[Rfam]
RNA: Small nucleolar RNA SNORA61
Nucleotides: 135
Stems, first nucleotide, its partner, number of pairs: 003059005019046003023043001025040004076123007
Number, partner (000 for none) and nucleotide at each position: 001000a002000c003059c004058c005057u006056c007055c008000a009000g010000a011000u012000c013000c014000c015000u016000u017000u018000c019046c020045c021044a022000u023043c024000a025040g026039a027038u028037c029000u030000g031000a032000a033000u034000a035000c036000c037028g038027a039026u040025c041000u042000c043023g044021u045020g046019g047000u048000c049000g050000a051000a052000a053000a054000a055007g056006g057005a058004g059003g060000a061000a062000a063000a064000a065000u066000a067000a068000a069000a070000u071000u072000c073000a074000g075000a076123c077122u078121g079120g080119u081118c082117u083000g084000g085000g086000g087000c088000u089000c090000u091000u092000u093000g094000c095000u096000g097000g098000u099000g100000c101000c102000g103000u104000c105000c106000u107000g108000c109000u110000c111000u112000g113000a114000g115000a116000g117082g118081g119080g120079c121078c122077a123076g124000u125000u126000g127000g128000a129000a130000a131000a132000c133000a134000a135000a